[Rfam]
RNA sequence: GGCACAGCCCUUGCUGCACUUUCGCAAAGGGUGAUCCAACGGCGGAUCGCCUACCGACAAUGGCGUCGC
Numbered sequence: 001g002g003c004a005c006a007g008c009c010c011u012u013g014c015u016g017c018a019c020u021u022u023c024g025c026a027a028a029g030g031g032u033g034a035u036c037c038a039a040c041g042g043c044g045g046a047u048c049g050c051c052u053a054c055c056g057a058c059a060a061u062g063g064c065g066u067c068g069c
Base pairs, nucleotide, nucleotide: 031050032049033048034047035046036045037044
The record is a 69-nucleotide RNA sequence, which matches "narK RNA" in Rfam. The sequence is in the family's curated seed alignment.